[Rfam]
Nucleotides: 113
Stems, first nucleotide, its partner, number of pairs: 001030003005026006055106002066095008075086001077084001
Number, partner (000 for none) and nucleotide at each position: 001030g002029g003028g004000g005026a006025g007024c008023a009022u010021c011000c012000a013000g014000a015000a016000u017000c018000u019000g020000a021010g022009a023008u024007g025006u026005u027000a028003c029002c030001u031000g032000a033000u034000a035000u036000a037000a038000u039000c040000u041000u042000c043000c044000u045000a046000c047000a048000u049000u050000a051000a052000a053000a054000c055106u056105c057000g058000u059000u060000a061000u062000a063000u064000u065000u066095g067094c068093u069092u070091g071090u072089a073088g074000u075086g076000c077084u078000u079000u080000a081000g082000u083000a084077a085000a086075c087000u088073c089072u090071g091070c092069a093068a094067g095066u096000a097000a098000a099000a100000a101000a102000u103000g104000a105056g106055a107000u108000a109000c110000a111000u112000g113000a
Notes
The family of this 113-nucleotide RNA from Olea europaea is "Small nucleolar RNA snoR104". The match comes from Rfam's covariance-model search (86 bits). Its family is annotated with nucleolus and RNA processing in the Gene Ontology. By type it is an H/ACA-box small nucleolar RNA. On this family, see Marker et al., Curr Biol 2002: "Experimental RNomics: identification of 140 candidates for small non-messenger RNAs in the plant Arabidopsis thaliana".